[Rfam]
RNA sequence: CGGGUUCUGCCCCUCUCGUGACGAGGUCAAAUUCCGGUGGCCUUACUCGAUCCCGAGGGAGCUGGCUCUGACAAGGUCGUGGCCUUGUUACCUGGCGCCCACCUGUACAAGCAGGCUCUCGGGAAUUGGUUGCCUCAACGGUUGCGGCGGUCCCGCC
Number, nucleotide and partner (000 for none) at each position: 001c000002g000003g154004g153005u000006u000007c150008u149009g148010c147011c146012c144013c000014u000015c141016u000017c140018g139019u138020g000021a000022c000023g000024a000025g000026g000027u000028c000029a000030a000031a000032u125033u124034c123035c122036g000037g120038u000039g118040g116041c115042c114043u000044u000045a000046c000047u000048c000049g000050a000051u000052c000053c000054c000055g000056a000057g100058g099059g098060a000061g096062c095063u094064g093065g092066c000067u000068c000069u000070g089071a088072c087073a086074a085075g084076g083077u000078c000079g000080u000081g000082g000083c076084c075085u074086u073087g072088u071089u070090a000091c000092c065093u064094g063095g062096c061097g000098c059099c058100c057101a000102c000103c000104u000105g000106u000107a000108c000109a000110a000111g000112c000113a000114g042115g041116c040117u000118c039119u000120c037121g000122g035123g034124a033125a032126u000127u000128g000129g000130u000131u000132g000133c000134c000135u000136c000137a000138a019139c018140g017141g015142u000143u000144g012145c000146g011147g010148c009149g008150g007151u000152c000153c004154c003155g000156c000157c000
RNA: 6S / SsrS RNA
Organism: Meinhardsimonia xiamenensis